Description: Rfam assigns this 94-nucleotide RNA sequence from Rhodoferax koreensis to the family "Burkholderia RNA 7 (anti-hemB)". The family has 26 seed sequences and 479 matches in Rfam 15.1. A reference for the family is Ramos et al. (2013), "Experimental identification of small non-coding regulatory RNAs in the opportunistic human pathogen Burkholderia cenocepacia J2315", Genomics. Gene Ontology terms of the family: bacterial biofilm matrix and protein binding. The match comes from Rfam's covariance-model search (50 bits). Rfam describes the family as follows. This RNA motif was identified by computational search in b-proteobacteria Burkholderia. Co-purified with Hfq, expression confirmed by Northern blot. The source organism's lineage runs through Bacteria, Pseudomonadota, Betaproteobacteria, Comamonadaceae and Rhodoferax.

RNA sequence: UCCCCCGCUUUACCUCCCUGAGCGGGCGCCUCGCGGUGUAACAACUUACAGGCUUGGCUGCCCCGGACGUGCUCGCAUGGCCGGGGCAUUUUUU
Numbered sequence: 001u002c003c004c005c006c007g008c009u010u011u012a013c014c015u016c017c018c019u020g021a022g023c024g025g026g027c028g029c030c031u032c033g034c035g036g037u038g039u040a041a042c043a044a045c046u047u048a049c050a051g052g053c054u055u056g057g058c059u060g061c062c063c064c065g066g067a068c069g070u071g072c073u074c075g076c077a078u079g080g081c082c083g084g085g086g087c088a089u090u091u092u093u094u
Stems, first nucleotide, its partner, number of pairs: 004026006028053004035046003059088008